A member of the RNA family "T-box leader" from Lactococcus lactis, 214 nucleotides long. By type it is a cis-regulatory leader. The literature on the family includes a 1994 paper in J Bacteriol by Grundy et al., "Interaction between the acceptor end of tRNA and the T box stimulates antitermination in the Bacillus subtilis tyrS gene: a new role for the discriminator base".
[Rfam]
RNA sequence: ACGAGAGAUGAAAAGAGUAGUCUUAGGUAUCAGUUGAGAGAGCCUUGUUGCUGAGAAAAGGUCUGAUAUUGGGAUGAACCACACUCAUCGCUAUCUUACUCACAUUAUUAUGUGAGCGUUAGCUGCGUUAAUGCUAAGUUGUUAUAACUUACCGAGGUCACUUUUGUGAAAAAGUGAUAAAUUAAGGUGGAACCACGAUUAAACCGUCCUUUAA
Number, nucleotide and partner (000 for none) at each position: 001a000002c000003g000004a000005g000006a000007g089008a088009u087010g086011a085012a000013a000014a000015g000016a000017g000018u000019a000020g075021u074022c073023u072024u071025a070026g000027g000028u000029a000030u000031c065032a064033g063034u000035u000036g000037a000038g000039a000040g000041a000042g062043c061044c060045u059046u058047g000048u000049u000050g000051c000052u000053g000054a000055g000056a000057a000058a046059a045060g044061g043062u042063c033064u032065g031066a000067u000068a000069u000070u025071g024072g023073g022074a021075u020076g000077a000078a000079c000080c000081a000082c000083a000084c000085u011086c010087a009088u008089c007090g000091c000092u000093a000094u000095c000096u000097u000098a000099c116100u115101c114102a113103c112104a111105u110106u000107a000108u000109u000110a105111u104112g103113u102114g101115a100116g099117c127118g126119u125120u000121a000122g000123c000124u000125g119126c118127g117128u000129u000130a000131a000132u000133g000134c000135u000136a000137a000138g000139u000140u000141g000142u000143u000144a000145u000146a000147a000148c000149u000150u000151a000152c000153c000154g000155a000156g000157g178158u177159c176160a175161c174162u173163u172164u000165u000166g000167u000168g000169a000170a000171a000172a163173a162174g161175u160176g159177a158178u157179a000180a000181a000182u000183u000184a211185a210186g209187g208188u000189g000190g000191a000192a000193c000194c000195a207196c206197g205198a000199u203200u000201a000202a000203a199204c000205c197206g196207u195208c187209c186210u185211u184212u000213a000214a000